[Rfam]
RNA sequence: UCAAUUGAUGGUGAUGGAGCUCACCGUGCACUGCCUGAAAAGGAUGAUGGCUCCUACGGGUUG
Numbered sequence: 001u002c003a004a005u006u007g008a009u010g011g012u013g014a015u016g017g018a019g020c021u022c023a024c025c026g027u028g029c030a031c032u033g034c035c036u037g038a039a040a041a042g043g044a045u046g047a048u049g050g051c052u053c054c055u056a057c058g059g060g061u062u063g
Stems, first nucleotide, its partner, number of pairs: 010025004016054006034043003
The record is a 63-nucleotide sequence from Paenalicyclobacillus mengziensis, which matches "Fluoride riboswitch aptamer (crcB RNA motif)" in Rfam. Taxonomically the source falls in Paenalicyclobacillus (Bacteria, Bacillati, Bacilli, Caryophanales). The literature on the family includes a 2012 paper in Science by Baker et al., "Widespread genetic switches and toxicity resistance proteins for fluoride". The base pairs follow the family's consensus structure, which is taken from published work. A search with the family's covariance model found it, with a score of 46 bits.